The record is a 75-nucleotide RNA from Pan troglodytes, which matches "mir-320 microRNA precursor family" in Rfam. The source organism's lineage runs through Eukaryota, Eumetazoa, Chordata, Mammalia and Pan. Pairs were carried over by alignment from the consensus structure, which was predicted with RNAalifold. For this family Rfam cites "Many novel mammalian microRNA candidates identified by extensive cloning and RAKE analysis" (Berezikov et al., Genome Res, 2006). Rfam links the family to the GO terms negative regulation of gene expression, long-term synaptic potentiation and RISC complex.
[Rfam]
RNA sequence: UGUCUCUUAGGCUUUCUCUUCCCAGAUUUCCCAAAGUUGGGAAAAGCUGGGUUGAGAGGGCAAAAGGAAAAAAAA
Numbered sequence: 001u002g003u004c005u006c007u008u009a010g011g012c013u014u015u016c017u018c019u020u021c022c023c024a025g026a027u028u029u030c031c032c033a034a035a036g037u038u039g040g041g042a043a044a045a046g047c048u049g050g051g052u053u054g055a056g057a058g059g060g061c062a063a064a065a066g067g068a069a070a071a072a073a074a075a
Stems, first nucleotide, its partner, number of pairs: 014058005021051005028043006